[Rfam]
RNA sequence: AAAGCGUUACGAUGAUGGAAUAUUCCAAGUCUAGCUUGAAUGUGAAUCUUUUUAUUCAC
Dot-bracket structure: .((((.....(((...(((....)))..)))..))))....((((((......))))))
Rfam assigns this 59-nucleotide RNA sequence from Philodulcilactobacillus myokonensis to the family "L17 ribosomal protein downstream element". Taxonomically the source falls in Philodulcilactobacillus (Bacteria, Bacilli, Lactobacillales, Lactobacillaceae). The match comes from Rfam's covariance-model search (39 bits). The family's consensus secondary structure is taken from published work.